A member of the RNA family "MIR6274 microRNA precursor family" from Prunus avium, 100 nucleotides long. Taxonomically the source falls in Prunus (Eukaryota, Euphyllophyta, Rosales, Amygdaloideae). The base pairs follow the family's consensus structure, which was predicted with RNAalifold.
RNA sequence: GGAUAACACUUUUUGCUAUCCCCGCCCAAUAACGCAAUGACACGUAGCUUUUCCACGUGUCAUUGUGUUAUUGGUCGGGAAUAGCAAAACAAUUAUAUCC
Numbered sequence: 001g002g003a004u005a006a007c008a009c010u011u012u013u014u015g016c017u018a019u020c021c022c023c024g025c026c027c028a029a030u031a032a033c034g035c036a037a038u039g040a041c042a043c044g045u046a047g048c049u050u051u052u053c054c055a056c057g058u059g060u061c062a063u064u065g066u067g068u069u070a071u072u073g074g075u076c077g078g079g080a081a082u083a084g085c086a087a088a089a090c091a092a093u094u095a096u097a098u099c100c
Base pairs, nucleotide, nucleotide: 002099003098004097005096011089012088013087014086015085016084017083018082019081021079022078023077024076026074027073028072029071030070031069032068033067034066035065036064037063038062039061040060041059042058043057044056045055047053